[Rfam]
RNA sequence: AGGACAGUAUCGAUAUAGAACUGUACCUUAAAACAUGUUUAAAUACUAAAAAUGAUCUGCCUUGAUCUGGAAAGACAGGGACGGAAGA
Numbered sequence: 001a002g003g004a005c006a007g008u009a010u011c012g013a014u015a016u017a018g019a020a021c022u023g024u025a026c027c028u029u030a031a032a033a034c035a036u037g038u039u040u041a042a043a044u045a046c047u048a049a050a051a052a053u054g055a056u057c058u059g060c061c062u063u064g065a066u067c068u069g070g071a072a073a074g075a076c077a078g079g080g081a082c083g084g085a086a087g088a
Stems, first nucleotide, its partner, number of pairs: 001028003004024005010019002057084003060080005066075003
Overview
Shown here is an 88-nucleotide RNA from Lysinibacillus halotolerans, a member of the family "pan motif". It is annotated as a cis-regulatory element. The organism belongs to Lysinibacillus, within Bacteria.